RNA sequence: GGUUUCUAUUAGUGUAAAUCCACUCACCUCAAUUUAAGAUGAGAAACAAUUCUCCAUUGGUAACAAAUGGUUAUCCAUUAAGCGGAGGAGGGUGAGC
Numbered sequence: 001g002g003u004u005u006c007u008a009u010u011a012g013u014g015u016a017a018a019u020c021c022a023c024u025c026a027c028c029u030c031a032a033u034u035u036a037a038g039a040u041g042a043g044a045a046a047c048a049a050u051u052c053u054c055c056a057u058u059g060g061u062a063a064c065a066a067a068u069g070g071u072u073a074u075c076c077a078u079u080a081a082g083c084g085g086a087g088g089a090g091g092g093u094g095a096g097c
Stems, first nucleotide, its partner, number of pairs: 010022001012020001052087004056078002059075006
Dot-bracket structure: .........(.(.......).).............................((((((.((((((.....)))))).)).....))))..........
RNA: Plastid-rps12 3UTR RNA